A member of the RNA family "Selenocysteine transfer RNA" from Caenimonas koreensis, 92 nucleotides long. Pairs were carried over by alignment from the consensus structure, which is taken from published work. On this family, see Mizutani and Goto, FEBS Lett 2000: "Eukaryotic selenocysteine tRNA has the 9/4 secondary structure". The source organism's lineage runs through Bacteria, Pseudomonadota, Comamonadaceae, Caenimonas and Caenimonas koreensis. The match comes from Rfam's covariance-model search (75 bits).
RNA sequence: GGAAGGAAAUCGCUCCCGGUGGGGCGGCUGGGCUUCAAACCCAGUGGGUGGCGCCAUGCGUUGCCGGGUGGGUUCGACUCCCGCUUCCUUCC
Numbered sequence: 001g002g003a004a005g006g007a008a009a010u011c012g013c014u015c016c017c018g019g020u021g022g023g024g025c026g027g028c029u030g031g032g033c034u035u036c037a038a039a040c041c042c043a044g045u046g047g048g049u050g051g052c053g054c055c056a057u058g059c060g061u062u063g064c065c066g067g068g069u070g071g072g073u074u075c076g077a078c079u080c081c082c083g084c085u086u087c088c089u090u091c092c
Base pairs, nucleotide, nucleotide: 001092002091003090004089005088006087007086008085011026012025013024014023015022016021027045028044029043030042031041032040047065048064049063050062051061069083070082071081072080